[Rfam]
RNA sequence: AGUGCUGUGUUAGGGCACACCAGAAGCACUCAUAGCGCAUCCCUGUCAGAUUCUAACAAAUCUGUGUAUUCUGUU
Dot-bracket structure: ............[[[...(.(((((((.........))..]]]...((((((......))))))....))))).)